[Rfam]
RNA sequence: GUGUUUAAUUUCUGUAAGUCGCUUUGGAUAAAAGUGUCUGCUAAAUAAUAAUAA
Numbered sequence: 001g002u003g004u005u006u007a008a009u010u011u012c013u014g015u016a017a018g019u020c021g022c023u024u025u026g027g028a029u030a031a032a033a034g035u036g037u038c039u040g041c042u043a044a045a046u047a048a049u050a051a052u053a054a
Stems, first nucleotide, its partner, number of pairs: 013043001014041003020036006
Rfam assigns this 54-nucleotide sequence from Acipenser ruthenus to the family "UnaL2 LINE 3' element".
A reference for the family is Baba et al. (2004), "Solution structure of an RNA stem-loop derived from the 3' conserved region of eel LINE UnaL2", RNA.
Pairs were carried over by alignment from the consensus structure, which is taken from published work.
A search with the family's covariance model found it, with a score of 58 bits.
Rfam links the family to the GO term transposition, RNA-mediated.